[Rfam]
RNA sequence: GGGUCGAGUGAUGAUUAAAUAACUGCAACAAUAUGAUUGGAGCAAAACUCCUAUGAUUCCCAAGUAUUUAAGUCUCUGAUGACC
Numbered sequence: 001g002g003g004u005c006g007a008g009u010g011a012u013g014a015u016u017a018a019a020u021a022a023c024u025g026c027a028a029c030a031a032u033a034u035g036a037u038u039g040g041a042g043c044a045a046a047a048c049u050c051c052u053a054u055g056a057u058u059c060c061c062a063a064g065u066a067u068u069u070a071a072g073u074c075u076c077u078g079a080u081g082a083c084c
Stems, first nucleotide, its partner, number of pairs: 001084002004082003039051004
Rfam assigns this 84-nucleotide sequence from Paspalum vaginatum to the family "Small nucleolar RNA Z199".
The base pairs follow the family's consensus structure, which was predicted with PFOLD.
On this family, see Chen et al., Nucleic Acids Res 2003: "The high diversity of snoRNAs in plants: identification and comparative study of 120 snoRNA genes from Oryza sativa".
Rfam 15.1 lists 953 matches to the family in 222 species.
The source organism's lineage runs through Eukaryota, Viridiplantae, Liliopsida, Poaceae and Paspalum.
snoZ199 is a C/D box small nucleolar RNA, which acts as a methylation guide RNA for sites on 18S and 25S rRNA. Rice snoZ199 is reported to be homologous to Arabidopsis snoR13.